[Rfam]
Record summary: The record is a 102-nucleotide sequence from Paenibacillus sp. KS1, which matches "Purine riboswitch aptamer" in Rfam.
RNA sequence: AAUUACAACCGUAUACUUCUUCGUAUAACUUUGGAAAUAUGGUCCAAUCGUCUCUACCGAGCUGCCGUAAACAGUUUGACUACGAGGAAAAGAAUGCUUGCU
Numbered sequence: 001a002a003u004u005a006c007a008a009c010c011g012u013a014u015a016c017u018u019c020u021u022c023g024u025a026u027a028a029c030u031u032u033g034g035a036a037a038u039a040u041g042g043u044c045c046a047a048u049c050g051u052c053u054c055u056a057c058c059g060a061g062c063u064g065c066c067g068u069a070a071a072c073a074g075u076u077u078g079a080c081u082a083c084g085a086g087g088a089a090a091a092g093a094a095u096g097c098u099u100g101c102u
Stems, first nucleotide, its partner, number of pairs: 018088008031047005058078007